[Rfam]
RNA sequence: UCGGGCGGCCGGGCGGCCGCUCCUGCAAGCGCCGAAAGGCCGCAGGAGAGGAAAGUCCGGGCUCCAUGGAGGCAAGGCGCCGGGGAAAUCCCGGCGGGCCGGGCGACCGGUUCAGGGACAGCGCCGCAGAAAUCAGACCGCCAGACCCGGCUCGCCGCGUCCGGCAAGGGUGAAACGGUGGGGUAAGAGCCCACCGCCCCGACCGCAAGGAAGGGGGCACGGCAAGCCCCGCCUGGAGCAAGACCGAAUAGGGACGGACGCUGCAGCUCCGGCUGCAGCAGGCGCGCCUCCGCGCUGCCGUCCGGGUGGGUCGCAUGAGGCGUCGCGCAAGCGCCGUCCCAGAGGAAUGGCCGCCGCGCUGUUUCCGUCCCGGAAACAGCGGCACAGAACCCGGCUUACAGGCCGCCCGGCACG
Numbered sequence: 001u002c003g004g005g006c007g008g009c010c011g012g013g014c015g016g017c018c019g020c021u022c023c024u025g026c027a028a029g030c031g032c033c034g035a036a037a038g039g040c041c042g043c044a045g046g047a048g049a050g051g052a053a054a055g056u057c058c059g060g061g062c063u064c065c066a067u068g069g070a071g072g073c074a075a076g077g078c079g080c081c082g083g084g085g086a087a088a089u090c091c092c093g094g095c096g097g098g099c100c101g102g103g104c105g106a107c108c109g110g111u112u113c114a115g116g117g118a119c120a121g122c123g124c125c126g127c128a129g130a131a132a133u134c135a136g137a138c139c140g141c142c143a144g145a146c147c148c149g150g151c152u153c154g155c156c157g158c159g160u161c162c163g164g165c166a167a168g169g170g171u172g173a174a175a176c177g178g179u180g181g182g183g184u185a186a187g188a189g190c191c192c193a194c195c196g197c198c199c200c201g202a203c204c205g206c207a208a209g210g211a212a213g214g215g216g217g218c219a220c221g222g223c224a225a226g227c228c229c230c231g232c233c234u235g236g237a238g239c240a241a242g243a244c245c246g247a248a249u250a251g252g253g254a255c256g257g258a259c260g261c262u263g264c265a266g267c268u269c270c271g272g273c274u275g276c277a278g279c280a281g282g283c284g285c286g287c288c289u290c291c292g293c294g295c296u297g298c299c300g301u302c303c304g305g306g307u308g309g310g311u312c313g314c315a316u317g318a319g320g321c322g323u324c325g326c327g328c329a330a331g332c333g334c335c336g337u338c339c340c341a342g343a344g345g346a347a348u349g350g351c352c353g354c355c356g357c358g359c360u361g362u363u364u365c366c367g368u369c370c371c372g373g374a375a376a377c378a379g380c381g382g383c384a385c386a387g388a389a390c391c392c393g394g395c396u397u398a399c400a401g402g403c404c405g406c407c408c409g410g411c412a413c414g
Stems, first nucleotide, its partner, number of pairs: 001410010011399001012355007020048007053397003057394005062238004071289002075234005080094005095115001096113007116229002121227002123223003138169002140165003144161003148157003177195006196218001197216004203210002242312004252303006281296005319338004324333003
The family of this 414-nucleotide sequence from Alkalicaulis satelles is "Bacterial RNase P class A".
Rfam's curators write: Ribonuclease P (RNase P) is a ubiquitous endoribonuclease, found in archaea, bacteria and eukarya as well as chloroplasts and mitochondria.
The literature on the family includes a 2013 paper in RNA Biol by Beauregard et al., "Identification and characterization of small RNAs in Yersinia pestis".
Taxonomically the source falls in Alkalicaulis (Bacteria, Pseudomonadati, Pseudomonadota, Maricaulaceae).